[Rfam]
Small nucleolar RNA SNORA5: a 123-nucleotide RNA sequence from Grantiella picta. The family's RNA type in Rfam is H/ACA-box small nucleolar RNA. ACA5 is a member of the H/ACA class of snoRNA that guide the sites of modification of uridines to pseudouridines. The family's consensus secondary structure was predicted with RNAfold.

RNA sequence: UGCAGCCCAGUCAAAUUCGGUCCCUGUCCCCCAGUGUCAGGGACCGGCCACCGGCUGCCACAGCAACCCCCGUGCCCCGCAUGCCCCACGUCCCCUGCUGUGGGACCUGGGGGACGGAUCCUC
Dot-bracket structure: .((((............(((((((((.(.......).)))))))))........)))).............((.(((......((.(((..........))))).....))).))........